c-di-AMP riboswitch aptamer (ydaO/yuaA leader): a 182-nucleotide sequence from Streptomyces sp. ISL-11. The match comes from Rfam's covariance-model search (66 bits).

RNA sequence: UCGCGUUAAGCGCCGUAGGCAGGAGCGGGGGAACCAAGGUAGGCGCCGGAACGGUCCGUCGGUCAGCAACCGGCGGGGGCCGGAACGGCUUGGGGUGAAGCCGGAUGUGCUCGCACGGCCGGCCGGGCGAACUCACAGCCCGAACCCGACAGCUCACCUCGUAGGCGUCGGUGAGGAAACGA
Numbered sequence: 001u002c003g004c005g006u007u008a009a010g011c012g013c014c015g016u017a018g019g020c021a022g023g024a025g026c027g028g029g030g031g032a033a034c035c036a037a038g039g040u041a042g043g044c045g046c047c048g049g050a051a052c053g054g055u056c057c058g059u060c061g062g063u064c065a066g067c068a069a070c071c072g073g074c075g076g077g078g079g080c081c082g083g084a085a086c087g088g089c090u091u092g093g094g095g096u097g098a099a100g101c102c103g104g105a106u107g108u109g110c111u112c113g114c115a116c117g118g119c120c121g122g123c124c125g126g127g128c129g130a131a132c133u134c135a136c137a138g139c140c141c142g143a144a145c146c147c148g149a150c151a152g153c154u155c156a157c158c159u160c161g162u163a164g165g166c167g168u169c170g171g172u173g174a175g176g177a178a179a180c181g182a
Base pairs, nucleotide, nucleotide: 011167012166013165014164025162026161027160028159029158030157035092036091037090038089093147094146095145101122102121103120104119125141126140127139128138
Lineage of the source: Bacteria > Bacillati > Actinomycetes > Kitasatosporales > Streptomyces.